[Rfam]
Nucleotides: 070
Base pairs, nucleotide, nucleotide: 001070002069003068004067005066006065008064009063010062011061012060013059014058015057016056017055018054019053020052021051022050023049024048025047028044029043032040033039034038
Number, partner (000 for none) and nucleotide at each position: 001070u002069g003068u004067g005066g006065u007000u008064a009063u010062u011061u012060u013059g014058g015057u016056a017055u018054a019053g020052u021051a022050g023049c024048u025047c026000u027000a028044g029043a030000c031000u032040c033039u034038a035000u036000u037000a038034u039033a040032g041000u042000u043029u044028c045000c046000u047025g048024a049023g050022c051021u052020g053019c054018u055017g056016u057015a058014c059013c060012a061011a062010a063009a064008u065006a066005c067004c068003a069002c070001a